[Rfam]
RNA sequence: UCUAGCGCCUGGCGCCGGACUCCCAGCCACAACCCGCACCCUGACUCACCUUCCCCGGUGUCAGGUGGCGUGUGGAUGGGGAUCCGGCCCCAGGGGCUACAGGCC
Numbered sequence: 001u002c003u004a005g006c007g008c009c010u011g012g013c014g015c016c017g018g019a020c021u022c023c024c025a026g027c028c029a030c031a032a033c034c035c036g037c038a039c040c041c042u043g044a045c046u047c048a049c050c051u052u053c054c055c056c057g058g059u060g061u062c063a064g065g066u067g068g069c070g071u072g073u074g075g076a077u078g079g080g081g082a083u084c085c086g087g088c089c090c091c092a093g094g095g096g097c098u099a100c101a102g103g104c105c
Stems, first nucleotide, its partner, number of pairs: 010092003014088003018084002021081005027075004035070003040065006047058001
The family of this 105-nucleotide sequence from Planctomonas sp. JC2975 is "mraW RNA". Rfam classes the family as a cis-regulatory element. A search with the family's covariance model found it, with a score of 55 bits. Pairs were carried over by alignment from the consensus structure, which is taken from published work.